[Rfam]
RNA: Fluoride riboswitch aptamer (crcB RNA motif)
RNA sequence: UUUUUCCGAGGCGAUGGGGUUCGCCUUAUGCCUGUGAGUGGCUAAUGACUCCUACUUUCUA
Numbered sequence: 001u002u003u004u005u006c007c008g009a010g011g012c013g014a015u016g017g018g019g020u021u022c023g024c025c026u027u028a029u030g031c032c033u034g035u036g037a038g039u040g041g042c043u044a045a046u047g048a049c050u051c052c053u054a055c056u057u058u059c060u061a
Stems, first nucleotide, its partner, number of pairs: 010025004016052006030042003